[Rfam]
RNA sequence: AUGUUCGGGCAAUCGCUCUGCUCCUUUAGAGCAGAGAGGAAAGUCCAUGCUCGCACAACCUGAAAUGGUUGUAAUGAUCGUGCCUGACGAAACGAUAAGUCAGGGCAGCUCGAUUUUUUGAGUUGACGGCGCAAGGGAGACCUACGUUCGUAAGAAUAGGGUUCACCUUCUGAAAGUGCCACAGUGACGAAGUCUUCGUGGAAACACGUAGAGUGGAACGCGGUAAACCCCACGAGCGAGUAACCCAAACUAUGGUAGGGGCACUUUCCCGACGGAAACGGAAGGGAAAGGCGAUUGAUUUCGCAGAUAGAUGAUUGCCAUCGCUAUGUAAGGUGAAGAGCCGCAGCACAGCGAUACAGAACAUGGCUUAUAGAA
Numbered sequence: 001a002u003g004u005u006c007g008g009g010c011a012a013u014c015g016c017u018c019u020g021c022u023c024c025u026u027u028a029g030a031g032c033a034g035a036g037a038g039g040a041a042a043g044u045c046c047a048u049g050c051u052c053g054c055a056c057a058a059c060c061u062g063a064a065a066u067g068g069u070u071g072u073a074a075u076g077a078u079c080g081u082g083c084c085u086g087a088c089g090a091a092a093c094g095a096u097a098a099g100u101c102a103g104g105g106c107a108g109c110u111c112g113a114u115u116u117u118u119u120g121a122g123u124u125g126a127c128g129g130c131g132c133a134a135g136g137g138a139g140a141c142c143u144a145c146g147u148u149c150g151u152a153a154g155a156a157u158a159g160g161g162u163u164c165a166c167c168u169u170c171u172g173a174a175a176g177u178g179c180c181a182c183a184g185u186g187a188c189g190a191a192g193u194c195u196u197c198g199u200g201g202a203a204a205c206a207c208g209u210a211g212a213g214u215g216g217a218a219c220g221c222g223g224u225a226a227a228c229c230c231c232a233c234g235a236g237c238g239a240g241u242a243a244c245c246c247a248a249a250c251u252a253u254g255g256u257a258g259g260g261g262c263a264c265u266u267u268c269c270c271g272a273c274g275g276a277a278a279c280g281g282a283a284g285g286g287a288a289a290g291g292c293g294a295u296u297g298a299u300u301u302c303g304c305a306g307a308u309a310g311a312u313g314a315u316u317g318c319c320a321u322c323g324c325u326a327u328g329u330a331a332g333g334u335g336a337a338g339a340g341c342c343g344c345a346g347c348a349c350a351g352c353g354a355u356a357c358a359g360a361a362c363a364u365g366g367c368u369u370a371u372a373g374a375a
Stems, first nucleotide, its partner, number of pairs: 004375003007371001008319007016036006041369003045366005050240005055072006078235005083104006105127001106125008128230002131170001134169001139163004146157003176228002178224003193212003197208004244260003264290007291304004321354005327348003
This 375-nucleotide sequence from Geomicrobium halophilum belongs to the Rfam family "Bacterial RNase P class B".
By type it is a ribozyme.
It scores 306 bits against the family's covariance model.
About the family: Ribonuclease P (RNase P) is a ubiquitous endoribonuclease, found in archaea, bacteria and eukarya as well as chloroplasts and mitochondria. Its best characterised activity is the generation of mature 5'-ends of tRNAs by cleaving the 5'-leader elements of precursor-tRNAs.
Its Rfam clan is "RNaseP clan".